Background: Shown here is a 128-nucleotide sequence from Nannospalax galili, a member of the family "Small nucleolar RNA SNORA24". ACA24 is a member of the H/ACA class of snoRNA that guide the sites of modification of uridines to pseudouridines. The match comes from Rfam's covariance-model search (97 bits). The base pairs follow the family's consensus structure, which was predicted with RNAfold. Taxonomically the source falls in Nannospalax (Eukaryota, Gnathostomata, Eutheria, Euarchontoglires).
[Rfam]
RNA sequence: CUCCAUUUGUCUUUGGGACCUGUCAUCUGUGGCAGUCUCCCUUCUUAGCCACGGAGGAGCGUAUUGUUUAUUGGCAAAGCUAUCACCAUGUAAUUGGUAUCAUAUUCUAACUUGUACUGUUAGGAACU
Numbered sequence: 001c002u003c004c005a006u007u008u009g010u011c012u013u014u015g016g017g018a019c020c021u022g023u024c025a026u027c028u029g030u031g032g033c034a035g036u037c038u039c040c041c042u043u044c045u046u047a048g049c050c051a052c053g054g055a056g057g058a059g060c061g062u063a064u065u066g067u068u069u070a071u072u073g074g075c076a077a078a079g080c081u082a083u084c085a086c087c088a089u090g091u092a093a094u095u096g097g098u099a100u101c102a103u104a105u106u107c108u109a110a111c112u113u114g115u116a117c118u119g120u121u122a123g124g125a126a127c128u
Stems, first nucleotide, its partner, number of pairs: 002055003006051001015041004020035005065125001067123002071119001073117001074115004081102001085098004